[Rfam]
The record is a 365-nucleotide part of an RNA from Monosporascus sp. 5C6A, which matches "Ascomycota telomerase RNA" in Rfam. A reference for the family is Qi et al. (2013), "The common ancestral core of vertebrate and fungal telomerase RNAs", Nucleic Acids Res. It is annotated as a non-coding RNA gene. Its family is annotated with telomere maintenance via telomerase, telomerase catalytic core complex and telomerase activity in the Gene Ontology.

Nucleotides: 365
Stems, first nucleotide, its partner, number of pairs: 184204003187200003206218004
Number, partner (000 for none) and nucleotide at each position: 001000u002000u003000c004000a005000a006000c007000a008000g009000a010000g011000a012000g013000a014000g015000c016000u017000u018000c019000u020000u021000u022000g023000a024000a025000g026000u027000c028000g029000g030000u031000u032000c033000g034000a035000c036000a037000g038000g039000a040000a041000u042000g043000u044000u045000a046000u047000g048000a049000u050000g051000g052000c053000a054000a055000u056000c057000g058000c059000c060000g061000a062000u063000u064000u065000c066000g067000a068000u069000a070000a071000g072000c073000a074000a075000a076000u077000u078000c079000g080000u081000u082000g083000a084000c085000g086000a087000c088000a089000g090000u091000u092000c093000u094000g095000g096000u097000c098000u099000c100000u101000u102000a103000g104000a105000a106000g107000c108000u109000a110000a111000u112000g113000a114000c115000u116000g117000g118000g119000u120000c121000a122000u123000c124000g125000g126000g127000g128000u129000c130000a131000g132000a133000g134000g135000u136000u137000g138000a139000g140000g141000u142000a143000a144000u145000c146000a147000g148000c149000a150000u151000g152000a153000a154000u155000u156000g157000c158000u159000u160000c161000g162000c163000a164000u165000c166000g167000c168000a169000a170000g171000a172000c173000g174000u175000g176000g177000g178000g179000a180000c181000c182000g183000g184204g185203a186202c187200c188199c189198a190000u191000c192000u193000a194000g195000a196000g197000u198189u199188g200187g201000a202186g203185u204184c205000a206218a207217a208216g209215c210000u211000u212000a213000g214000u215209g216208c217207u218206u219000g220000u221000c222000c223000g224000g225000u226000c227000u228000u229000u230000g231000c232000g233000g234000a235000u236000u237000g238000c239000c240000u241000g242000u243000a244000g245000c246000a247000g248000c249000a250000u251000u252000c253000a254000u255000a256000a257000u258000g259000a260000u261000g262000a263000c264000c265000u266000a267000c268000c269000a270000a271000u272000u273000c274000a275000a276000u277000u278000u279000u280000u281000u282000g283000a284000u285000u286000u287000u288000g289000u290000c291000g292000a293000g294000c295000u296000g297000g298000a299000a300000g301000g302000c303000u304000g305000g306000u307000c308000u309000g310000a311000a312000g313000g314000c315000a316000a317000a318000u319000c320000g321000g322000a323000g324000g325000u326000u327000g328000u329000u330000c331000u332000c333000c334000g335000c336000u337000c338000c339000g340000g341000u342000g343000g344000a345000g346000g347000a348000c349000a350000g351000c352000c353000c354000c355000c356000u357000a358000u359000a360000c361000u362000u363000u364000u365000u